Rfam assigns this 251-nucleotide RNA from a Pseudomonadota bacterium to the family "permuted transfer-messenger RNA". Rfam's curators put it in the seed alignment. Lineage of the source: Bacteria > Pseudomonadati > Pseudomonadota. Gene Ontology term of the family: RNA catabolic process. Rfam classes the family as a non-coding RNA gene.
[Rfam]
RNA sequence: GACGCUAAACGCUGUCGCGGAAUAGACGAAGUGGACCCGGGGGCAGUGCCCGGCGGCUCCACCAUCUGGCAGAAGCUCCUCCGGGCGCGCUGCCAGCCGGCGGGGCCGAAACAGGAUCGACACGCGCAGUAAAGGCGAAAAGCGGCGUCCGGCAUGGUAUCCGCCGUUAUCGGGCCAGGCACUCAAAUGCCAACGACAACUACGUCGUAGCGAAUGACAACUCCGCCACUGGCGAAGCUGUUGCUGCUUAA
Numbered sequence: 001g002a003c004g005c006u007a008a009a010c011g012c013u014g015u016c017g018c019g020g021a022a023u024a025g026a027c028g029a030a031g032u033g034g035a036c037c038c039g040g041g042g043g044c045a046g047u048g049c050c051c052g053g054c055g056g057c058u059c060c061a062c063c064a065u066c067u068g069g070c071a072g073a074a075g076c077u078c079c080u081c082c083g084g085g086c087g088c089g090c091u092g093c094c095a096g097c098c099g100g101c102g103g104g105g106c107c108g109a110a111a112c113a114g115g116a117u118c119g120a121c122a123c124g125c126g127c128a129g130u131a132a133a134g135g136c137g138a139a140a141a142g143c144g145g146c147g148u149c150c151g152g153c154a155u156g157g158u159a160u161c162c163g164c165c166g167u168u169a170u171c172g173g174g175c176c177a178g179g180c181a182c183u184c185a186a187a188u189g190c191c192a193a194c195g196a197c198a199a200c201u202a203c204g205u206c207g208u209a210g211c212g213a214a215u216g217a218c219a220a221c222u223c224c225g226c227c228a229c230u231g232g233c234g235a236a237g238c239u240g241u242u243g244c245u246g247c248u249u250a251a
Base pairs, nucleotide, nucleotide: 001149002148003147004146005145015138016137017136018135027126028125031123032122033121037053038052039051040050041049054108055107056106057105058104059103060102150166151165152164153163
Dot-bracket structure: (((((.........((((........((..(((...(((((.......)))))(((((((.........................................)))))))............))).))........))))......)))))((((.........)))).....................................................................................